Annotation:
The family of this 57-nucleotide RNA from Synechococcus elongatus is "Glutamine riboswitch aptamer (glnA leader)".

RNA sequence: AUCGUUGGCCCAGUUUAUCUGGGUGGAAGUAAGGUCUUUGGCCUGAAGCAACGCGCC
Numbered sequence: 001a002u003c004g005u006u007g008g009c010c011c012a013g014u015u016u017a018u019c020u021g022g023g024u025g026g027a028a029g030u031a032a033g034g035u036c037u038u039u040g041g042c043c044u045g046a047a048g049c050a051a052c053g054c055g056c057c
Base pairs, nucleotide, nucleotide: 003053004052005051006050007049009023010022011021012020013019026054032044033043034042035041036040
For this family Rfam cites "Bacterial aptamers that selectively bind glutamine" (Ames and Breaker, RNA Biol, 2011).